[Rfam]
RNA: Purine riboswitch aptamer
Organism: Bacillus taeanensis
RNA sequence: AUGGAACUUUCAUCAUUCCUUCGUAUAUCCUCGAUAAUAUGGUUCGAGAGUCUCUACCAGAUUACCUUAAAUAAUCUGACUAUGAAGGCAGAGUUAAGACUA
Numbered sequence: 001a002u003g004g005a006a007c008u009u010u011c012a013u014c015a016u017u018c019c020u021u022c023g024u025a026u027a028u029c030c031u032c033g034a035u036a037a038u039a040u041g042g043u044u045c046g047a048g049a050g051u052c053u054c055u056a057c058c059a060g061a062u063u064a065c066c067u068u069a070a071a072u073a074a075u076c077u078g079a080c081u082a083u084g085a086a087g088g089c090a091g092a093g094u095u096a097a098g099a100c101u102a
Stems, first nucleotide, its partner, number of pairs: 018088008030048005058078007